[Rfam]
A member of the RNA family "Small nucleolar RNA U2-30" from Enhydra lutris, 69 nucleotides long.
The family's consensus secondary structure is taken from published work.
Lineage of the source: Eukaryota > Chordata > Lutrinae > Enhydra > Enhydra lutris.
Rfam links the family to the GO terms RNA processing and nucleolus.
It scores 79 bits against the family's covariance model.
RNA sequence: GAGUAAUGAUAGAAAGGUUUUCUACUGAACUUUAUAACUAUGAAGGCUUCUACAGUUGACCUGAGCUCA
Numbered sequence: 001g002a003g004u005a006a007u008g009a010u011a012g013a014a015a016g017g018u019u020u021u022c023u024a025c026u027g028a029a030c031u032u033u034a035u036a037a038c039u040a041u042g043a044a045g046g047c048u049u050c051u052a053c054a055g056u057u058g059a060c061c062u063g064a065g066c067u068c069a
Base pairs, nucleotide, nucleotide: 001068002067003066004065013033014032015031016030018028019027